[Rfam]
Nucleotides: 097
Stems, first nucleotide, its partner, number of pairs: 009023003052087002055084001056078002059075006
Number, partner (000 for none) and nucleotide at each position: 001000g002000g003000u004000u005000u006000c007000a008000g009023u010022u011021g012000a013000u014000g015000u016000a017000a018000a019000u020000c021011c022010a023009a024000u025000c026000a027000c028000c029000u030000g031000a032000a033000u034000u035000u036000a037000a038000g039000a040000u041000g042000a043000u044000a045000a046000a047000a048000a049000a050000u051000u052087c053086u054000c055084c056078a057077u058000u059075g060074a061073u062072a063071a064070c065000a066000a067000a068000u069000a070064g071063u072062u073061a074060u075059u076000c077057a078056u079000u080000a081000a082000g083000c084055g085000a086053a087052g088000a089000a090000a091000a092000u093000c094000u095000u096000a097000u